[Rfam]
RNA sequence: CCGCGAGGCCGUGUCAGGUACUAGGUGACUCUGAGUGGAGAGGCUCUCAGAGACGCCUCGUGCCUCAGCACGGGCACGCGG
Numbered sequence: 001c002c003g004c005g006a007g008g009c010c011g012u013g014u015c016a017g018g019u020a021c022u023a024g025g026u027g028a029c030u031c032u033g034a035g036u037g038g039a040g041a042g043g044c045u046c047u048c049a050g051a052g053a054c055g056c057c058u059c060g061u062g063c064c065u066c067a068g069c070a071c072g073g074g075c076a077c078g079c080g081g
Base pairs, nucleotide, nucleotide: 001081002080003079004078005077007075009074010073011071012070016065017064018063019062020061021060024057025056026055027054029052030051031050032049033048034047035046037044